[Rfam]
RNA sequence: UCCUCUUGAAGCGGCGCAGCGCGCCCCUUCACCUCCCUGUUGGACUUGGCCGGACUUCGCGUCCGGCCAUUUUU
Numbered sequence: 001u002c003c004u005c006u007u008g009a010a011g012c013g014g015c016g017c018a019g020c021g022c023g024c025c026c027c028u029u030c031a032c033c034u035c036c037c038u039g040u041u042g043g044a045c046u047u048g049g050c051c052g053g054a055c056u057u058c059g060c061g062u063c064c065g066g067c068c069a070u071u072u073u074u
Base pairs, nucleotide, nucleotide: 008030009029010028011027013025014024015023016022017021048068049067050066051065052064053063054062055061
Source information: A member of the RNA family "Singlet oxygen resistance RNA X" from Jannaschia seohaensis, 74 nucleotides long. NCBI's taxonomy places the organism under Bacteria, Pseudomonadota, Alphaproteobacteria, Roseobacteraceae, Jannaschia. It scores 57 bits against the family's covariance model. On this family, see Berghoff et al., Mol Microbiol 2009: "Photooxidative stress-induced and abundant small RNAs in Rhodobacter sphaeroides". Rfam 15.1 lists 528 matches to the family in 356 species.